[Rfam]
RNA sequence: UCGACGCGUCGCAACUGGCGUUCGGAUGGGUGACCAUCGGGGAGCGACUGAAUCGGUUGGUGGCCGUUCGCCUGGGCCACGACG
Numbered sequence: 001u002c003g004a005c006g007c008g009u010c011g012c013a014a015c016u017g018g019c020g021u022u023c024g025g026a027u028g029g030g031u032g033a034c035c036a037u038c039g040g041g042g043a044g045c046g047a048c049u050g051a052a053u054c055g056g057u058u059g060g061u062g063g064c065c066g067u068u069c070g071c072c073u074g075g076g077c078c079a080c081g082a083c084g
Stems, first nucleotide, its partner, number of pairs: 003053001008048005015041002017072004026037004061079005

Shown here is an 84-nucleotide sequence from Orlajensenia flava, a member of the family "ZMP/ZTP riboswitch aptamer (pfl RNA motif)".
It scores 55 bits against the family's covariance model.